Source information
A member of the RNA family "Small Cajal body-specific RNA 7" from Rynchops niger, 315 nucleotides long. The organism belongs to Rynchops, within Eukaryota. It scores 176 bits against the family's covariance model. Its family is annotated with RNA processing and nucleolus in the Gene Ontology. The literature on the family includes a 2002 paper in EMBO J by Darzacq et al., "Cajal body-specific small nuclear RNAs: a novel class of 2'-O-methylation and pseudouridylation guide RNAs".

[Rfam]
RNA sequence: UAGAAGUGAUGAAAUAGAGAUAAUUGGAUGUCUCUUUGAAUGGAGUGUGUGUGAUAAAUGGAAUUUAAACCAAGUGGGGUGGGAUGUGGGGAAUGUGUGCGUGUGUGUGCACAUGUAUAGAAGAGGCUUCAAACGGGGGCACUGAUAAUGCAGUGCUGAUUCCGGAGUGCAUCUGAGGCAUGUUGUUAAGUUCUAGGGUGCCACAUUGCAACAUUGCCGAUGAUUAAAGCCCAGAACAAGCCCACCAAGACAAGCCUAAGCAUCCUAAAUCUCUAACAGGUUCAUUAAUGACAGUGAUCCUGUGAUCUGAUCUGA
Numbered sequence: 001u002a003g004a005a006g007u008g009a010u011g012a013a014a015u016a017g018a019g020a021u022a023a024u025u026g027g028a029u030g031u032c033u034c035u036u037u038g039a040a041u042g043g044a045g046u047g048u049g050u051g052u053g054a055u056a057a058a059u060g061g062a063a064u065u066u067a068a069a070c071c072a073a074g075u076g077g078g079g080u081g082g083g084a085u086g087u088g089g090g091g092a093a094u095g096u097g098u099g100c101g102u103g104u105g106u107g108u109g110c111a112c113a114u115g116u117a118u119a120g121a122a123g124a125g126g127c128u129u130c131a132a133a134c135g136g137g138g139g140c141a142c143u144g145a146u147a148a149u150g151c152a153g154u155g156c157u158g159a160u161u162c163c164g165g166a167g168u169g170c171a172u173c174u175g176a177g178g179c180a181u182g183u184u185g186u187u188a189a190g191u192u193c194u195a196g197g198g199u200g201c202c203a204c205a206u207u208g209c210a211a212c213a214u215u216g217c218c219g220a221u222g223a224u225u226a227a228a229g230c231c232c233a234g235a236a237c238a239a240g241c242c243c244a245c246c247a248a249g250a251c252a253a254g255c256c257u258a259a260g261c262a263u264c265c266u267a268a269a270u271c272u273c274u275a276a277c278a279g280g281u282u283c284a285u286u287a288a289u290g291a292c293a294g295u296g297a298u299c300c301u302g303u304g305a306u307c308u309g310a311u312c313u314g315a
Stems, first nucleotide, its partner, number of pairs: 001314004181213006188206001190201002193198001